Rfam assigns this 82-nucleotide RNA from Ananas comosus to the family "Small nucleolar RNA R12". Rfam's curators write: snoR12 is a C/D box small nucleolar RNA, which acts as a methylation guide for 25S ribosomal RNA in plants. snoR12 has been alternatively named snoZ44 in Arabidopsis and snoZ131 in rice. Gene Ontology terms of the family: RNA processing and nucleolus. Pairs were carried over by alignment from the consensus structure, which was predicted with PFOLD.
[Rfam]
RNA sequence: AUGUUGGAUGAUGAAACAAAUCAAUCGGAUUCCCAUUGAUUAUUUUUAAUAUGAGAUUAAUAACCAGCUACUUCUGACUCGU
Numbered sequence: 001a002u003g004u005u006g007g008a009u010g011a012u013g014a015a016a017c018a019a020a021u022c023a024a025u026c027g028g029a030u031u032c033c034c035a036u037u038g039a040u041u042a043u044u045u046u047u048a049a050u051a052u053g054a055g056a057u058u059a060a061u062a063a064c065c066a067g068c069u070a071c072u073u074c075u076g077a078c079u080c081g082u
Stems, first nucleotide, its partner, number of pairs: 001082003006078001